[Rfam]
Nucleotides: 110
Stems, first nucleotide, its partner, number of pairs: 010097003014093002018089002021086012034073001036069003040065008
Number, partner (000 for none) and nucleotide at each position: 001000g002000c003000a004000g005000g006000c007000g008000g009000a010097u011096g012095c013000g014093g015092u016000g017000a018089g019088g020000c021086c022085u023084c024083u025082g026081u027080c028079c029078g030077c031076u032075c033000g034073u035000a036069u037068g038067a039000c040065c041064c042063u043062g044061g045060u046059g047058c048000a049000a050000c051000u052000u053000c054000c055000c056000c057000g058047g059046c060045a061044c062043c063042a064041g065040g066000u067038u068037c069036g070000c071000g072000g073034a074000g075032g076031a077030g078029c079028g080027g081026g082025c083024g084023g085022g086021g087000a088019c089018c090000u091000g092015a093014c094000g095012g096011c097010a098000u099000c100000u101000g102000c103000c104000g105000a106000u107000c108000c109000g110000u
mraW RNA: a 110-nucleotide sequence from Haloechinothrix alba. The organism belongs to Haloechinothrix, within Bacteria. The family's RNA type in Rfam is cis-regulatory element.